Small nucleolar RNA R11/Z151: a 104-nucleotide sequence from Sorghum bicolor. The base pairs follow the family's consensus structure, which was predicted with PFOLD. The source organism's lineage runs through Eukaryota, Streptophytina, commelinids, Poaceae and Sorghum. By type it is a C/D-box small nucleolar RNA.

RNA sequence: AGGCUUACGACGAUUUCCUGUAAAAGGAUCUUAGCGGAUUUCUGUGAGCCGAAUCGUCGUCCGUGAAUCGUGAUCUCCAUAUGUUGUUACACACACCGAAGCCU
Numbered sequence: 001a002g003g004c005u006u007a008c009g010a011c012g013a014u015u016u017c018c019u020g021u022a023a024a025a026g027g028a029u030c031u032u033a034g035c036g037g038a039u040u041u042c043u044g045u046g047a048g049c050c051g052a053a054u055c056g057u058c059g060u061c062c063g064u065g066a067a068u069c070g071u072g073a074u075c076u077c078c079a080u081a082u083g084u085u086g087u088u089a090c091a092c093a094c095a096c097c098g099a100a101g102c103c104u
Stems, first nucleotide, its partner, number of pairs: 001104005